[Rfam]
RNA sequence: AUCAGAAAAGAGCAAACCCUUCAAAAGAAGGGGACGCAAAGUUACAGGUCUAAGGUUUCAAACUAUGACGGCUGUGCUACCUGA
Numbered sequence: 001a002u003c004a005g006a007a008a009a010g011a012g013c014a015a016a017c018c019c020u021u022c023a024a025a026a027g028a029a030g031g032g033g034a035c036g037c038a039a040a041g042u043u044a045c046a047g048g049u050c051u052a053a054g055g056u057u058u059c060a061a062a063c064u065a066u067g068a069c070g071g072c073u074g075u076g077c078u079a080c081c082u083g084a
Stems, first nucleotide, its partner, number of pairs: 012037002017032006040078003045074003048069003055063003
RNA: c-di-GMP-I riboswitch aptamer